The record is a 212-nucleotide RNA sequence from Faecalimonas nexilis, which matches "Group II catalytic intron D1-D4-6" in Rfam. Lineage of the source: Bacteria > Bacillati > Clostridia > Lachnospirales > Faecalimonas nexilis. Rfam describes the family as follows. Group II introns are found in rRNA, tRNA and mRNA of organelles in fungi, plants and protists, and also in mRNA in bacteria. Rfam links the family to the GO term Group II intron splicing. The pairing is the family consensus, mapped onto this sequence.

RNA sequence: GGAAUCCGGUUUAUCCAAGGUUUAGCCAACCAGAUAAUAGCGAGUCUUGGGAUGAUGUCGGUAACGCAUCUGACAAGCGUAGACAGCAAGAAAGCAGGGUUGAAUAGUGAUUGAGCUUCGAAAUGUUAACUUCAGUCGGUCGACGUCUUAACUGGUGCGGAAGACAAUACCAUGUAAUACGAUAUGGCGAGUAUUAUGUGGCACUGGCGGAG
Numbered sequence: 001g002g003a004a005u006c007c008g009g010u011u012u013a014u015c016c017a018a019g020g021u022u023u024a025g026c027c028a029a030c031c032a033g034a035u036a037a038u039a040g041c042g043a044g045u046c047u048u049g050g051g052a053u054g055a056u057g058u059c060g061g062u063a064a065c066g067c068a069u070c071u072g073a074c075a076a077g078c079g080u081a082g083a084c085a086g087c088a089a090g091a092a093a094g095c096a097g098g099g100u101u102g103a104a105u106a107g108u109g110a111u112u113g114a115g116c117u118u119c120g121a122a123a124u125g126u127u128a129a130c131u132u133c134a135g136u137c138g139g140u141c142g143a144c145g146u147c148u149u150a151a152c153u154g155g156u157g158c159g160g161a162a163g164a165c166a167a168u169a170c171c172a173u174g175u176a177a178u179a180c181g182a183u184a185u186g187g188c189g190a191g192u193a194u195u196a197u198g199u200g201g202c203a204c205u206g207g208c209g210g211a212g
Base pairs, nucleotide, nucleotide: 012036013035014034015033019031020030021029022028023190025188026187038089040087041086044084045083046082047081048079049078050074054070055069056068057067059066060065118210119209120208132207133206134205135204136203138202139165140164141163144159145158146157170201171200172199173198174197175196176195177194178193179192180191